[Rfam]
RNA: Rotavirus cis-acting replication element (CRE)
RNA sequence: GGAAUCUAAUUCGUUAUCUGUUUGAAGGUGGGUAUGGCAGAGUAAGAAUAGAAAGCGCUUAUGUGACC
Numbered sequence: 001g002g003a004a005u006c007u008a009a010u011u012c013g014u015u016a017u018c019u020g021u022u023u024g025a026a027g028g029u030g031g032g033u034a035u036g037g038c039a040g041a042g043u044a045a046g047a048a049u050a051g052a053a054a055g056c057g058c059u060u061a062u063g064u065g066a067c068c
Stems, first nucleotide, its partner, number of pairs: 001068002004064002007061003012057004017052002020049004